[Rfam]
RNA sequence: CACGCACCUGCCCUUCCCCCCCAGGGCAUGGCGCGUAGAAGGCCCCAGCUGCCCCCCCGGCUGGGGCCUUCACCU
Dot-bracket structure: .((((.(((((((..........))))).)).)))).(((((((((((((........)))))))))))))....